[Rfam]
RNA sequence: CUGACUGCUCUGAACUCCAGUUCCAGGCUAGACUGUGGGGACACAGACUCAUUCGGGGAGAAACUGGACUGUCUGGCAGCAGGCAGA
Dot-bracket structure: ((..((((((((.(((((((((((..(..((..(.((......)).)))..)....)))...))))))..)).))).)))))..)).